[Rfam]
RNA sequence: AACCCGUCACAACGGCUUCCUGGCGUGACGGCGUCAUCAUUGGAGCA
Number, nucleotide and partner (000 for none) at each position: 001a000002a000003c000004c031005c030006g029007u028008c027009a026010c025011a000012a000013c022014g021015g046016c045017u044018u000019c043020c042021u014022g013023g000024c000025g010026u009027g008028a007029c006030g005031g004032c000033g000034u000035c000036a000037u000038c000039a000040u000041u000042g020043g019044a017045g016046c015047a000
RNA: SAM/SAH riboswitch aptamer